[Rfam]
Rfam assigns this 68-nucleotide RNA from Mycolicibacterium litorale to the family "ASdes TB sRNA".

RNA sequence: AGCUGGACCGGAUCGACCGCGCGGGUGACGACGAGGUAGUCGCGCAGGGCGAUGCCGUGCCGAUUCUC
Numbered sequence: 001a002g003c004u005g006g007a008c009c010g011g012a013u014c015g016a017c018c019g020c021g022c023g024g025g026u027g028a029c030g031a032c033g034a035g036g037u038a039g040u041c042g043c044g045c046a047g048g049g050c051g052a053u054g055c056c057g058u059g060c061c062g063a064u065u066c067u068c
Base pairs, nucleotide, nucleotide: 004063006061008059013028016026017025018024035056036055037054038053040052041051042050043049
The family's consensus secondary structure is taken from published work. The literature on the family includes a 2009 paper in Mol Microbiol by Arnvig and Young, "Identification of small RNAs in Mycobacterium tuberculosis". NCBI's taxonomy places the organism under Bacteria, Actinomycetes, Mycobacteriaceae, Mycobacterium, Mycobacterium (subgen. Mycolicibacterium).